[Rfam]
RNA sequence: AGCUGUGUGGUGAUCACAAAGCGAAUUAUUCUUUCGCCUUUUACUAAAGAAUACCGUGUGAUCGUUACUUUAAACAGCAUACGCUAAUUUUUGAAGGGUGCUUUUGCAGUGAAAGCCC
Numbered sequence: 001a002g003c004u005g006u007g008u009g010g011u012g013a014u015c016a017c018a019a020a021g022c023g024a025a026u027u028a029u030u031c032u033u034u035c036g037c038c039u040u041u042u043a044c045u046a047a048a049g050a051a052u053a054c055c056g057u058g059u060g061a062u063c064g065u066u067a068c069u070u071u072a073a074a075c076a077g078c079a080u081a082c083g084c085u086a087a088u089u090u091u092u093g094a095a096g097g098g099u100g101c102u103u104u105u106g107c108a109g110u111g112a113a114a115g116c117c118c
Base pairs, nucleotide, nucleotide: 003077004076005075006074008067009066010065011064012063013062014061015060016059017058018057027053028052029051030050031049032048033047034046100116101115102114103113104112

This 118-nucleotide RNA from Zingiber officinale belongs to the Rfam family "U5 spliceosomal RNA". On this family, see Thomas et al., Nucleic Acids Res 1990: "The spliceosomal snRNAs of Caenorhabditis elegans". The base pairs follow the family's consensus structure, which is taken from published work.